RNA sequence: GUUGAUUUGAUUUAGGUUCCGAAAACAUAUCUUGGUAUGCUCGUUGGCUCCAUAUGCGCGUUGAUGGGUGUAUUAACAAUUGCAUUACCGGUGCCUGUGAUAGUCUCCAAC
Number, nucleotide and partner (000 for none) at each position: 001g108002u000003u000004g105005a104006u103007u000008u102009g101010a000011u099012u000013u097014a096015g000016g094017u093018u000019c091020c000021g000022a000023a000024a000025a000026c000027a000028u000029a000030u000031c000032u000033u000034g074035g073036u072037a071038u000039g000040c000041u000042c000043g000044u000045u000046g000047g059048c058049u000050c000051c000052a000053u000054a000055u000056g000057c000058g048059c047060g000061u000062u000063g000064a000065u000066g000067g000068g000069u000070g000071u037072a036073u035074u034075a000076a000077c000078a000079a000080u000081u000082g000083c000084a000085u000086u000087a000088c000089c000090g000091g019092u000093g017094c016095c000096u014097g013098u000099g011100a000101u009102a008103g006104u005105c004106u000107c000108c001109a000110a000111c000
RNA: Potassium channel RNA editing signal
Organism: Cylicocyclus nassatus